[Rfam]
RNA sequence: UGGGUAGCGAUGAUUAUACUAAUUCCUCCUACUGAUUGUUGUUGCCACGGCGUAAAAAACCAUUUUACACCCACAGAAUAUAAACUUCC
Dot-bracket structure: ..((.((.............................................................................)).))
A member of the RNA family "Small nucleolar RNA snoR8a" from Olea europaea, 89 nucleotides long. The source organism's lineage runs through Eukaryota, Streptophyta, Streptophytina, Euphyllophyta and Olea europaea. By type it is a C/D-box small nucleolar RNA. The literature on the family includes a 2001 paper in RNA by Brown et al., "Multiple snoRNA gene clusters from Arabidopsis". Rfam 15.1 lists 956 matches to the family in 245 species. Rfam links the family to the GO terms nucleolus and RNA processing. Pairs were carried over by alignment from the consensus structure, which was predicted with WAR.